[Rfam]
Nucleotides: 077
Base pairs, nucleotide, nucleotide: 001016002015003014004013005012024077025076026075027074030072031071035049036048037047038046039045050068051067052066053065
Number, partner (000 for none) and nucleotide at each position: 001016a002015g003014c004013a005012c006000g007000a008000a009000a010000a011000u012005g013004u014003g015002c016001u017000g018000g019000c020000a021000u022000a023000u024077g025076u026075a027074a028000g029000u030072c031071c032000g033000a034000c035049g036048u037047g038046c039045c040000g041000u042000a043000c044000c045039g046038g047037c048036a049035c050068g051067g052066c053065c054000u055000u056000g057000c058000u059000u060000g061000a062000a063000a064000u065053g066052g067051c068050u069000u070000g071031g072030g073000a074027u075026u076025a077024c